[Rfam]
RNA sequence: CGAUAUGCAGGCGCCCGUCCUCCUCCCAGGGUCGCCUGCGGGAACGACAGCACUCCUCCUCCCAGCUGUCGUUCGGUUCUUUUCGAAAAGCCUGCCGCACCUCCUCCCGCGGCAGGCUUUUUCG
Numbered sequence: 001c002g003a004u005a006u007g008c009a010g011g012c013g014c015c016c017g018u019c020c021u022c023c024u025c026c027c028a029g030g031g032u033c034g035c036c037u038g039c040g041g042g043a044a045c046g047a048c049a050g051c052a053c054u055c056c057u058c059c060u061c062c063c064a065g066c067u068g069u070c071g072u073u074c075g076g077u078u079c080u081u082u083u084c085g086a087a088a089a090g091c092c093u094g095c096c097g098c099a100c101c102u103c104c105u106c107c108c109g110c111g112g113c114a115g116g117c118u119u120u121u122u123c124g
Stems, first nucleotide, its partner, number of pairs: 007039003011035003015031002042074010088119011
The record is a 124-nucleotide RNA sequence from Rhizobium sp. Kim5, which matches "Alphaproteobacterial ar14" in Rfam.
Smr14C2 was renamed NfeR1 (Nodule Formation Efficiency RNA) highly expressed in salt stress and during the symbiotic interaction on legume roots.
Gene Ontology term of the family: biological process involved in symbiotic interaction.
The sequence is in the family's curated seed alignment.
By type it is a small RNA.